[Rfam]
RNA sequence: ACAAUGAAGGUCUGUGGUUGAAAGUCCAUGCCAGUCGCAGGCAAAGGGACCCACGUAAGAUAGUAAAAAAGUUACUAGCGAUCAUGGUGCGGCUUAGAUGUUAGACCUGCCGGUGAUUUCACCGAGAGAAGUAGUAGUGAAGGUAACCCCUGGGCGAACCUUCCAGCAGGCGGGUGUGGGGGCAAAGACCAGGUCAGCUUCUUUUGU
Numbered sequence: 001a002c003a004a005u006g007a008a009g010g011u012c013u014g015u016g017g018u019u020g021a022a023a024g025u026c027c028a029u030g031c032c033a034g035u036c037g038c039a040g041g042c043a044a045a046g047g048g049a050c051c052c053a054c055g056u057a058a059g060a061u062a063g064u065a066a067a068a069a070a071g072u073u074a075c076u077a078g079c080g081a082u083c084a085u086g087g088u089g090c091g092g093c094u095u096a097g098a099u100g101u102u103a104g105a106c107c108u109g110c111c112g113g114u115g116a117u118u119u120c121a122c123c124g125a126g127a128g129a130a131g132u133a134g135u136a137g138u139g140a141a142g143g144u145a146a147c148c149c150c151u152g153g154g155c156g157a158a159c160c161u162u163c164c165a166g167c168a169g170g171c172g173g174g175u176g177u178g179g180g181g182g183c184a185a186a187g188a189c190c191a192g193g194u195c196a197g198c199u200u201c202u203u204u205u206g207u
Stems, first nucleotide, its partner, number of pairs: 001207004006201004012197003015191005028177003031041001033094007050087002055082001059079001061077005085184001106170005111124005128163004137155002141151003
A member of the RNA family "raiA RNA" from Andreesenella acetica, 207 nucleotides long.
The match comes from Rfam's covariance-model search (180 bits).
It is annotated as a riboswitch.
The base pairs follow the family's consensus structure, which is taken from published work.